A member of the RNA family "Group II catalytic intron D1-D4-1" from Pseudomonas putida, 96 nucleotides long. The sequence is in the family's curated seed alignment. Rfam's curators write: Group II introns are found in rRNA, tRNA and mRNA of organelles in fungi, plants and protists, and also in mRNA in bacteria.
RNA sequence: CGCGAACAGAGGCAACUCUGUGAGUGAUUAAGCAGAAGUCAGCAGACGGCAUAGUAGCCAAACGCCCAUCGUAAUGGUUGGGACACGGUGAAGGCC
Numbered sequence: 001c002g003c004g005a006a007c008a009g010a011g012g013c014a015a016c017u018c019u020g021u022g023a024g025u026g027a028u029u030a031a032g033c034a035g036a037a038g039u040c041a042g043c044a045g046a047c048g049g050c051a052u053a054g055u056a057g058c059c060a061a062a063c064g065c066c067c068a069u070c071g072u073a074a075u076g077g078u079u080g081g082g083a084c085a086c087g088g089u090g091a092a093g094g095c096c
Stems, first nucleotide, its partner, number of pairs: 001026002006021006038047003048096003057089003065082003

The base pairs follow the family's consensus structure.